[Rfam]
RNA sequence: UUGUGGCAAGAAUGAUGAGACAAUUAGAUGUGCGAGGGGUGAAAUGAAUCAUCUCUUUGAGCUGAAAUACGAGGCUUAUUGAUAUUCUGACUUGCCGUUU
Numbered sequence: 001u002u003g004u005g006g007c008a009a010g011a012a013u014g015a016u017g018a019g020a021c022a023a024u025u026a027g028a029u030g031u032g033c034g035a036g037g038g039g040u041g042a043a044a045u046g047a048a049u050c051a052u053c054u055c056u057u058u059g060a061g062c063u064g065a066a067a068u069a070c071g072a073g074g075c076u077u078a079u080u081g082a083u084a085u086u087c088u089g090a091c092u093u094g095c096c097g098u099u100u
Stems, first nucleotide, its partner, number of pairs: 003098008
Dot-bracket structure: ..((((((((................................................................................))))))))..
RNA: Small nucleolar RNA Z266